RNA sequence: CUCUGGAGAGAGCAGUAAGUGAAGCCACCAACGGGGAACACUCCAACAUAAAAUGGAGUUAAACUCUCAGGUAAAAGGACAGAG
Numbered sequence: 001c002u003c004u005g006g007a008g009a010g011a012g013c014a015g016u017a018a019g020u021g022a023a024g025c026c027a028c029c030a031a032c033g034g035g036g037a038a039c040a041c042u043c044c045a046a047c048a049u050a051a052a053a054u055g056g057a058g059u060u061a062a063a064c065u066c067u068c069a070g071g072u073a074a075a076a077g078g079a080c081a082g083a084g
Base pairs, nucleotide, nucleotide: 001084002083003082004081005080012025013024027072028071029070031067034066035065036064040059041058042057043056044055045054
RNA: Glycine riboswitch aptamer
Organism: Domibacillus epiphyticus